[Rfam]
RNA sequence: GGCCUAACCCGUUAAGUUCGCUUAACGGUAUGGUCGAAAAUCGAGACAAACAGAAAACCCGUUAUCAGGGCGUUUGUCUCGUUGCACAGGGAAACUUGUGUAGGAGCUUCGGCUCU
Numbered sequence: 001g002g003c004c005u006a007a008c009c010c011g012u013u014a015a016g017u018u019c020g021c022u023u024a025a026c027g028g029u030a031u032g033g034u035c036g037a038a039a040a041u042c043g044a045g046a047c048a049a050a051c052a053g054a055a056a057a058c059c060c061g062u063u064a065u066c067a068g069g070g071c072g073u074u075u076g077u078c079u080c081g082u083u084g085c086a087c088a089g090g091g092a093a094a095c096u097u098g099u100g101u102a103g104g105a106g107c108u109u110c111g112g113c114u115c116u
Stems, first nucleotide, its partner, number of pairs: 001035004009028007042081010058070003083102008103116005

The family of this 116-nucleotide sequence is "LOOT RNA".
The family's consensus secondary structure is taken from published work.
Rfam's curators put it in the seed alignment.
By type it is a small RNA.